[Rfam]
RNA sequence: AUGUUGGUUGCCUUGCAGGCGAGACCCUAUCAAUAUUGCCGCUGCUUUUCUUACUGAUUUAAUGGAGUAGUGCAAUAUCGCUUAUAGGGUCUUGACUCCCAGGGAUG
Numbered sequence: 001a002u003g004u005u006g007g008u009u010g011c012c013u014u015g016c017a018g019g020c021g022a023g024a025c026c027c028u029a030u031c032a033a034u035a036u037u038g039c040c041g042c043u044g045c046u047u048u049u050c051u052u053a054c055u056g057a058u059u060u061a062a063u064g065g066a067g068u069a070g071u072g073c074a075a076u077a078u079c080g081c082u083u084a085u086a087g088g089g090u091c092u093u094g095a096c097u098c099c100c101a102g103g104g105a106u107g
Stems, first nucleotide, its partner, number of pairs: 021093010031080001033078007042070007
A member of the RNA family "mir-454 microRNA precursor family" from Oncorhynchus kisutch, 107 nucleotides long. Rfam 15.1 lists 696 matches to the family in 601 species. Lineage of the source: Eukaryota > Bilateria > Teleostomi > Euteleosteomorpha > Oncorhynchus. On this family, see Glazov et al., Genome Res 2008: "A microRNA catalog of the developing chicken embryo identified by a deep sequencing approach".